[Rfam]
RNA: MIR5225 microRNA precursor family
RNA sequence: GGGAGGGACUCCUGUCGCAGGAGAGAUGGCGCCUACUGCCAUCAUUUUAAUUAAUUUCAAUUGAUUUGAUGACAAGAAGUAAGCUUCAUCUCUCCUCGACUGAAGCCCCUUUCAAU
Numbered sequence: 001g002g003g004a005g006g007g008a009c010u011c012c013u014g015u016c017g018c019a020g021g022a023g024a025g026a027u028g029g030c031g032c033c034u035a036c037u038g039c040c041a042u043c044a045u046u047u048u049a050a051u052u053a054a055u056u057u058c059a060a061u062u063g064a065u066u067u068g069a070u071g072a073c074a075a076g077a078a079g080u081a082a083g084c085u086u087c088a089u090c091u092c093u094c095c096u097c098g099a100c101u102g103a104a105g106c107c108c109c110u111u112u113c114a115a116u
Stems, first nucleotide, its partner, number of pairs: 005108003009105002012102001014100004019096003023092007